Shown here is a 102-nucleotide RNA from Ureibacillus massiliensis, a member of the family "Purine riboswitch aptamer". Rfam links the family to the GO term purine nucleobase biosynthetic process.
[Rfam]
RNA sequence: AAUAAAACUGAAUACUAUACUCAUAUAAUAGCGGGAAUAUGGCUCGCAAGUUUCUACCGACUAACCGUAAAUAUGUCGACUAUGAGAGACAAAUUUAGACAG
Numbered sequence: 001a002a003u004a005a006a007a008c009u010g011a012a013u014a015c016u017a018u019a020c021u022c023a024u025a026u027a028a029u030a031g032c033g034g035g036a037a038u039a040u041g042g043c044u045c046g047c048a049a050g051u052u053u054c055u056a057c058c059g060a061c062u063a064a065c066c067g068u069a070a071a072u073a074u075g076u077c078g079a080c081u082a083u084g085a086g087a088g089a090c091a092a093a094u095u096u097a098g099a100c101a102g
Base pairs, nucleotide, nucleotide: 018088020086021085022084023083024082025081029049031047032046033045034044035043058078059077060076061075064072
Dot-bracket structure: .................(.((((((...(.(((((.......))))).)........((((..(.......)..))))..)))))).)..............